[Rfam]
RNA sequence: GGACGGGAGCGGAAUUUUCGCUAUUUCCUCUGCGUACCGAUGAUUGAAGCCGAAUAGCGUCAGAUCAUCGGACUGUCC
Numbered sequence: 001g002g003a004c005g006g007g008a009g010c011g012g013a014a015u016u017u018u019c020g021c022u023a024u025u026u027c028c029u030c031u032g033c034g035u036a037c038c039g040a041u042g043a044u045u046g047a048a049g050c051c052g053a054a055u056a057g058c059g060u061c062a063g064a065u066c067a068u069c070g071g072a073c074u075g076u077c078c
Base pairs, nucleotide, nucleotide: 001078002077003076004075005074006073009033010032011031012030038070039069040068041067042066043065044064045063